[Rfam]
RNA: T-box leader
RNA sequence: GAAAAUGCGAUGAAGGGGAAAAAGGCAGGCCCCUCUCACCCAGAGAGCCGGCGGUCGGUGCGAGCCGGUGUGAGUCAGCCUGUGUAUAACUGGCCCCCGAGCAGUCCAUCUGAACCAGCGAGUAGGGUGGAACGUCUGGCCCCGUUACCGGCCGCGGCCUUGUUGGAGGCUAUGAGGGCUGUGUGGGAGACCCACAGCUGAACCAGGGUGGUACCGCGUGGUUAUAAUACACGCCCCUGAC
Dot-bracket structure: ......((......((((......((((((......(((.......((((((...........))))))))).....))))))..........))))...))..(((((((.............))))))).((........))................................(((((((.........))))))).....((((.......(((((.........)))))))))...